[Rfam]
RNA sequence: CUUUGAAUAGAUAUGAAAUUCAAGGCGGAAGGAG
Numbered sequence: 001c002u003u004u005g006a007a008u009a010g011a012u013a014u015g016a017a018a019u020u021c022a023a024g025g026c027g028g029a030a031g032g033a034g
Stems, first nucleotide, its partner, number of pairs: 001025008

Rfam assigns this 34-nucleotide sequence to the family "L31-Firmicutes ribosomal protein leader". Rfam classes the family as a cis-regulatory leader. A reference for the family is Eckert and Weinberg (2020), "Discovery of 20 novel ribosomal leader candidates in bacteria and archaea", BMC Microbiol.